[Rfam]
The record is a 147-nucleotide RNA sequence from Enterococcus phoeniculicola, which matches "glmS glucosamine-6-phosphate activated ribozyme aptamer" in Rfam.

Nucleotides: 147
Stems, first nucleotide, its partner, number of pairs: 020034006044075005052064004076089005093137007108121005
Number, partner (000 for none) and nucleotide at each position: 001000a002000c003000c004000a005000a006000u007000u008000g009000g010000a011000u012000a013000g014000c015000g016000c017000c018000u019000g020034g021033u022032c023031u024030g025029g026000u027000u028000u029025u030024c031023a032022g033021a034020c035000g036000a037000c038000g039000a040000g041000g042000a043000a044075a045074g046073a047072g048071u049000u050000u051000a052064u053063c054062g055061a056000a057000u058000c059000a060000u061055u062054c063053g064052g065000c066000g067000g068000a069000u070000g071048a072047c073046u074045c075044u076089a077088g078087g079086g080085u081000c082000u083000g084000c085080a086079c087078u088077c089076u090000a091000u092000a093137g094136a095135u096134a097133a098132a099131u100000a101000a102000a103000a104000a105000a106000a107000c108121g109120a110119a111118u112117g113000g114000a115000g116000a117112c118111a119110u120109u121108c122000c123000a124000a125000c126000a127000a128000a129000g130000u131099a132098u133097u134096u135095a136094u137093c138000a139000a140000g141000c142000a143000g144000c145000g146000g147000a
The base pairs follow the family's consensus structure, which is taken from published work. A search with the family's covariance model found it, with a score of 89 bits. Rfam's curators write: This entry contains a glucosamine-6-phosphate activated ribozyme that is found in the mRNA for GlmS. GlmS is an enzyme that uses fructose-6-phosphate and glutamine to generate glucosamine-6-phosphate. Taxonomically the source falls in Enterococcus phoeniculicola (Bacteria, Bacillati, Enterococcaceae, Enterococcus).